Rfam assigns this 292-nucleotide RNA sequence from Mycoplasma struthionis to the family "Bacterial RNase P class B". The source organism's lineage runs through Bacteria, Mycoplasmatota, Mollicutes, Mycoplasmataceae and Mycoplasma. About the family: Ribonuclease P (RNase P) is a ubiquitous endoribonuclease, found in archaea, bacteria and eukarya as well as chloroplasts and mitochondria. Its best characterised activity is the generation of mature 5'-ends of tRNAs by cleaving the 5'-leader elements of precursor-tRNAs. Cellular RNase Ps are ribonucleoproteins. RNA from bacterial RNase Ps retains its catalytic activity in the absence of the protein subunit, i.e. it is a ribozyme. Isolated eukaryotic and archaeal RNase P RNA has not been shown to retain its catalytic function, but is still essential for the catalytic activity of the holoenzyme. Although the archaeal and eukaryotic holoenzyme s have a much greater protein content than the bacterial ones, the RNA cores from all the three lineages are homologous -- helices corresponding to P1, P2, P3, P4, and P10/11 are common to all cellular RNase P RNAs. Yet, there is considerable sequence variation, particularly among the eukaryotic RNAs. The family's consensus secondary structure is taken from published work.

RNA sequence: UAGCAUGGCUAACUGCUAUAGAAAUAUAGAGGAAAAUCCGCUCUAACACAUACUGCGAUGUAUGUAGUGUUCAUGCUAAACCUAAGAAGUUUAGGCAACUUAUAGUUGACGACUAGUGCAACAGAGACGAGCUUAUUUAGUUAAGAUGAAACGAUGUAAACUCCAUGAGUUAGAAACCCAAAUUUUGGUAGGGGAAUCGGAUAUUAGGAAUCAAACGAAAGUCCGAAGGUAUUUUUUAUACUUAGAUAAAUAGUUAGCGCUAAGAAAUUAGUACAGAAAGCGGUUUAUAAUG
Numbered sequence: 001u002a003g004c005a006u007g008g009c010u011a012a013c014u015g016c017u018a019u020a021g022a023a024a025u026a027u028a029g030a031g032g033a034a035a036a037u038c039c040g041c042u043c044u045a046a047c048a049c050a051u052a053c054u055g056c057g058a059u060g061u062a063u064g065u066a067g068u069g070u071u072c073a074u075g076c077u078a079a080a081c082c083u084a085a086g087a088a089g090u091u092u093a094g095g096c097a098a099c100u101u102a103u104a105g106u107u108g109a110c111g112a113c114u115a116g117u118g119c120a121a122c123a124g125a126g127a128c129g130a131g132c133u134u135a136u137u138u139a140g141u142u143a144a145g146a147u148g149a150a151a152c153g154a155u156g157u158a159a160a161c162u163c164c165a166u167g168a169g170u171u172a173g174a175a176a177c178c179c180a181a182a183u184u185u186u187g188g189u190a191g192g193g194g195a196a197u198c199g200g201a202u203a204u205u206a207g208g209a210a211u212c213a214a215a216c217g218a219a220a221g222u223c224c225g226a227a228g229g230u231a232u233u234u235u236u237u238a239u240a241c242u243u244a245g246a247u248a249a250a251u252a253g254u255u256a257g258c259g260c261u262a263a264g265a266a267a268u269u270a271g272u273a274c275a276g277a278a279a280g281c282g283g284u285u286u287a288u289a290a291u292g
Stems, first nucleotide, its partner, number of pairs: 004292003007288001008258007016029005034286003038283005043173005048065006071168005076094006095110001096108005111163002116161002118157003132145004177193003197226006227243006260271004